[Rfam]
RNA: MIR1888 microRNA precursor family
Organism: Arabidopsis thaliana
RNA sequence: CCAAAUUUUUAAGUUAAGAUUUGUGAAGAAAGAGCUUUUAUAUAAGAGUUUUUAGGCUUAUAUUUAAAUUUUUUCUUCAUAAAUCUUAGCUAAGAUUUGG
Numbered sequence: 001c002c003a004a005a006u007u008u009u010u011a012a013g014u015u016a017a018g019a020u021u022u023g024u025g026a027a028g029a030a031a032g033a034g035c036u037u038u039u040a041u042a043u044a045a046g047a048g049u050u051u052u053u054a055g056g057c058u059u060a061u062a063u064u065u066a067a068a069u070u071u072u073u074u075c076u077u078c079a080u081a082a083a084u085c086u087u088a089g090c091u092a093a094g095a096u097u098u099g100g
Stems, first nucleotide, its partner, number of pairs: 001100009012091023036067002040063007